The record is a 114-nucleotide RNA sequence from Noviherbaspirillum sp. Root189, which matches "ZMP/ZTP riboswitch aptamer (pfl RNA motif)" in Rfam.
A search with the family's covariance model found it, with a score of 62 bits.
The family's consensus secondary structure is taken from published work.
Taxonomically the source falls in Noviherbaspirillum (Bacteria, Pseudomonadota, Betaproteobacteria, Burkholderiales).

RNA sequence: UUCGUCUCACGUAACUGGCGAAUGCCGGGCGCGCAGCUAGUCGCGGUUCGGCUAAAAGGUGGAAAUCCACCGGGGAACGUGAGAUAUCAACAGCCGUUCGCCUGGGCAGCCCAA
Number, nucleotide and partner (000 for none) at each position: 001u000002u000003c000004g085005u084006c083007u082008c081009a080010c079011g078012u077013a000014a000015c074016u073017g102018g101019c100020g099021a098022a000023u000024g000025c000026c000027g000028g000029g000030c000031g000032c000033g000034c000035a000036g000037c000038u000039a000040g000041u000042c000043g000044c000045g000046g000047u000048u000049c000050g000051g000052c000053u000054a000055a000056a000057a000058g000059g070060u069061g068062g067063a000064a000065a000066u000067c062068c061069a060070c059071c000072g000073g016074g015075g000076a000077a012078c011079g010080u009081g008082a007083g006084a005085u004086a000087u000088c000089a000090a000091c109092a000093g107094c106095c105096g000097u000098u021099c020100g019101c018102c017103u000104g000105g095106g094107c093108a000109g091110c000111c000112c000113a000114a000